The record is a 138-nucleotide RNA sequence from Setaria italica, which matches "Small nucleolar RNA snoR136" in Rfam. It is annotated as an H/ACA-box small nucleolar RNA.
[Rfam]
RNA sequence: UCUGCUUCUCUUGGUUCAUGCUCAUGAGCUGUUUUUGGUUCCUGAGCUUUGGAAGGUGAAGCAAAAAUCUCAAUGGUUCCUCUCGCUAUCCGGGGCAGAAUUUCUUUUGAUGCUGCUGGACGUCGAGGAACUAUAUUC
Numbered sequence: 001u002c003u004g005c006u007u008c009u010c011u012u013g014g015u016u017c018a019u020g021c022u023c024a025u026g027a028g029c030u031g032u033u034u035u036u037g038g039u040u041c042c043u044g045a046g047c048u049u050u051g052g053a054a055g056g057u058g059a060a061g062c063a064a065a066a067a068u069c070u071c072a073a074u075g076g077u078u079c080c081u082c083u084c085g086c087u088a089u090c091c092g093g094g095g096c097a098g099a100a101u102u103u104c105u106u107u108u109g110a111u112g113c114u115g116c117u118g119g120a121c122g123u124c125g126a127g128g129a130a131c132u133a134u135a136u137u138c
Stems, first nucleotide, its partner, number of pairs: 002058001005056003010052002013049002020047005026041005076131007084122002089120005100108001